[Rfam]
RNA sequence: CUGUGAAUAUUCUUGUUCUGAUUUUGUAAUAACUCAGGGGGAGGGGAUAAAUAUUCACUAUAUUAAGGCUAUGCAUGUGUCCCGAGAUCUAGUUCUUUCCCUAGCUCUGGUUUUAUCAAUGCUCAUAAUAAAC
Numbered sequence: 001c002u003g004u005g006a007a008u009a010u011u012c013u014u015g016u017u018c019u020g021a022u023u024u025u026g027u028a029a030u031a032a033c034u035c036a037g038g039g040g041g042a043g044g045g046g047a048u049a050a051a052u053a054u055u056c057a058c059u060a061u062a063u064u065a066a067g068g069c070u071a072u073g074c075a076u077g078u079g080u081c082c083c084g085a086g087a088u089c090u091a092g093u094u095c096u097u098u099c100c101c102u103a104g105c106u107c108u109g110g111u112u113u114u115a116u117c118a119a120u121g122c123u124c125a126u127a128a129u130a131a132a133c
Base pairs, nucleotide, nucleotide: 003058004057005056016039017038018037019036020035021034022032023031068126071123073122074121083110085108086107087106089104090103091102092101
Annotation: The family of this 133-nucleotide RNA sequence from Crocuta crocuta is "Small nucleolar RNA SNORA72". From the family's description: U72 is a member of the H/ACA class of snoRNAs. The snoRNA gene is located in intron 4 of the ribosomal L30 protein gene in human, mouse and chicken. Pairs were carried over by alignment from the consensus structure, which was predicted with PFOLD. The family has 29 seed sequences and 1,541 matches in Rfam 15.1. It is annotated as an H/ACA-box small nucleolar RNA. Rfam links the family to the GO terms nucleolus and RNA processing.